[Rfam]
RNA sequence: UGUGCAAGUGAUGAUAAAAGACAGGGACAUCAGAUUCUCCAAUUGGAGAAGUAGAAUGAUGAGUAAUUGUCUAAAUGGGAAUCUCUCUGAUGCACU
Numbered sequence: 001u002g003u004g005c006a007a008g009u010g011a012u013g014a015u016a017a018a019a020g021a022c023a024g025g026g027a028c029a030u031c032a033g034a035u036u037c038u039c040c041a042a043u044u045g046g047a048g049a050a051g052u053a054g055a056a057u058g059a060u061g062a063g064u065a066a067u068u069g070u071c072u073a074a075a076u077g078g079g080a081a082u083c084u085c086u087c088u089g090a091u092g093c094a095c096u
Stems, first nucleotide, its partner, number of pairs: 002095005
This 96-nucleotide RNA from Arabis nemorensis belongs to the Rfam family "Small nucleolar RNA R44/J54/Z268 family". The base pairs follow the family's consensus structure, which was predicted with PFOLD. Its Rfam clan is "SNORD74 clan".